[Rfam]
RNA sequence: GCACCUGAAUCUUUCCCAUUCUCUGCUGCUUUGUGCUGGCGUGGGGACAGAUGGUGCCACAGAAAGAGCAGAGGAAAUCCAGACGGGUUUUCCAUUUGUCUUGGGGCUUGUCUCUACAACUCUGCGACACUU
Numbered sequence: 001g002c003a004c005c006u007g008a009a010u011c012u013u014u015c016c017c018a019u020u021c022u023c024u025g026c027u028g029c030u031u032u033g034u035g036c037u038g039g040c041g042u043g044g045g046g047a048c049a050g051a052u053g054g055u056g057c058c059a060c061a062g063a064a065a066g067a068g069c070a071g072a073g074g075a076a077a078u079c080c081a082g083a084c085g086g087g088u089u090u091u092c093c094a095u096u097u098g099u100c101u102u103g104g105g106g107c108u109u110g111u112c113u114c115u116a117c118a119a120c121u122c123u124g125c126g127a128c129a130c131u132u
Stems, first nucleotide, its partner, number of pairs: 001057005013047007021039002068125006081113008092104003
Dot-bracket structure: (((((.......(((((((.((...............)).))))))).....)))))..........((((((.......((((((((...(((.......))).))))))))......)))))).......